[Rfam]
RNA sequence: GCUGGGACCAGUUGGGACCAGUCAUGGGCAAAAGAAAAGUGUUUUGUCCACCCUUGCAGUCUUCCUAGAGUGAAGUGGAGGUCUCUGUCUGCUUUAGGAGAGCUGACUAAACCAGAUCGUUCCCCUCCAUACAUG
Numbered sequence: 001g002c003u004g005g006g007a008c009c010a011g012u013u014g015g016g017a018c019c020a021g022u023c024a025u026g027g028g029c030a031a032a033a034g035a036a037a038a039g040u041g042u043u044u045u046g047u048c049c050a051c052c053c054u055u056g057c058a059g060u061c062u063u064c065c066u067a068g069a070g071u072g073a074a075g076u077g078g079a080g081g082u083c084u085c086u087g088u089c090u091g092c093u094u095u096a097g098g099a100g101a102g103c104u105g106a107c108u109a110a111a112c113c114a115g116a117u118c119g120u121u122c123c124c125c126u127c128c129a130u131a132c133a134u135g
Stems, first nucleotide, its partner, number of pairs: 004065003009059001011057002025050005034043002077128005085119001087117003091113001093111005
A member of the RNA family "Small Cajal body specific RNA 3" from Heliornis fulica, 135 nucleotides long. It is annotated as a small Cajal body RNA. For this family Rfam cites "Cajal body-specific small nuclear RNAs: a novel class of 2'-O-methylation and pseudouridylation guide RNAs" (Darzacq et al., EMBO J, 2002). The match comes from Rfam's covariance-model search (102 bits). Its family is annotated with RNA processing, nucleolus and Cajal body in the Gene Ontology. NCBI's taxonomy places the organism under Eukaryota, Opisthokonta, Theropoda, Heliornithidae, Heliornis. The family is grouped with related families in Rfam's "SCARNA3 clan". About the family: scaRNAs are a specific class of small nuclear RNAs which localise to the Cajal bodies and guide the modification of RNA polymerase II transcribed spliceosomal RNAs U1, U2, U4, U5 and U12.